This 234-nucleotide RNA sequence from Stutzerimonas nosocomialis belongs to the Rfam family "sRNA regulator of biofilms A". Rfam describes the family as follows. Important for biofilm formation and pathogenicity. Bacterial strain with deleted SrbA had reduced biofilm mass. As the ability to form biofilms can contribute to the ability a pathogen to thrive within the host, the C. elegans hosts infected with the srbA deleted strain displayed significantly lower mortality rate than the wild-type strain. However, the deletion of srbA had no effect on growth or antibiotic resistance in P. aeruginosa. A search with the family's covariance model found it, with a score of 136 bits. The base pairs follow the family's consensus structure, which was predicted with R-scape. NCBI's taxonomy places the organism under Bacteria, Pseudomonadati, Gammaproteobacteria, Pseudomonadaceae, Stutzerimonas. By type it is a small RNA. A reference for the family is Taylor et al. (2017), "A novel small RNA is important for biofilm formation and pathogenicity in Pseudomonas aeruginosa", PLoS One.
[Rfam]
RNA sequence: ACCAGAGGACCUGAAAAGGCCUCCGGAGCGCGCUCCAGCCAACCAGCCGAGCCGUUCCGUGACUGCAUCGCCCACAAGGCGGACUGACGAGGUUGCGACUGGAACGAGUCGUCCUGAGGGACGGGGAAGCGAUUUGCGUACAGCCUGAUGACAGUUACGACAGCGAGCGAGCCGCCCAACGGUAUCCACGAACCGGUAAGCGCUCCGACGAAUCCAUCGUCAGCCGCUGAGUCC
Numbered sequence: 001a002c003c004a005g006a007g008g009a010c011c012u013g014a015a016a017a018g019g020c021c022u023c024c025g026g027a028g029c030g031c032g033c034u035c036c037a038g039c040c041a042a043c044c045a046g047c048c049g050a051g052c053c054g055u056u057c058c059g060u061g062a063c064u065g066c067a068u069c070g071c072c073c074a075c076a077a078g079g080c081g082g083a084c085u086g087a088c089g090a091g092g093u094u095g096c097g098a099c100u101g102g103a104a105c106g107a108g109u110c111g112u113c114c115u116g117a118g119g120g121a122c123g124g125g126g127a128a129g130c131g132a133u134u135u136g137c138g139u140a141c142a143g144c145c146u147g148a149u150g151a152c153a154g155u156u157a158c159g160a161c162a163g164c165g166a167g168c169g170a171g172c173c174g175c176c177c178a179a180c181g182g183u184a185u186c187c188a189c190g191a192a193c194c195g196g197u198a199a200g201c202g203c204u205c206c207g208a209c210g211a212a213u214c215c216a217u218c219g220u221c222a223g224c225c226g227c228u229g230a231g232u233c234c
Stems, first nucleotide, its partner, number of pairs: 005023004010019003027056004034051001036049001038047002058150002063147001065145001070080003082137001086133001088131002114126002158169002173202003178197001180195004210224001